[Rfam]
The family of this 131-nucleotide RNA sequence from Castor canadensis is "Small nucleolar RNA SNORA51".
Pairs were carried over by alignment from the consensus structure, which was predicted with PFOLD.
Rfam classes the family as an H/ACA-box small nucleolar RNA.
A search with the family's covariance model found it, with a score of 128 bits.
The family has 9 seed sequences and 2,121 matches in Rfam 15.1.
The organism belongs to Castor, within Eukaryota.
Its family is annotated with nucleolus and RNA processing in the Gene Ontology.

RNA sequence: GACCUCCUGGUGCUUACUACAGGCUGUGUUCUUACACUGACUGUGUAAAAAGAGGAGGAAAAGUAAACUACUCCAUAUAUACCUCAGCCCAGGCCCUAUACUUGAUCUGUAUUGUGAAUGAGGAGACAUAG
Numbered sequence: 001g002a003c004c005u006c007c008u009g010g011u012g013c014u015u016a017c018u019a020c021a022g023g024c025u026g027u028g029u030u031c032u033u034a035c036a037c038u039g040a041c042u043g044u045g046u047a048a049a050a051a052g053a054g055g056a057g058g059a060a061a062a063g064u065a066a067a068c069u070a071c072u073c074c075a076u077a078u079a080u081a082c083c084u085c086a087g088c089c090c091a092g093g094c095c096c097u098a099u100a101c102u103u104g105a106u107c108u109g110u111a112u113u114g115u116g117a118a119u120g121a122g123g124a125g126a127c128a129u130a131g
Base pairs, nucleotide, nucleotide: 003058004057005056006055007054008053020043021042022041026037027036028035029034071123072122074120075119076118085109086108087107090104091103092102093101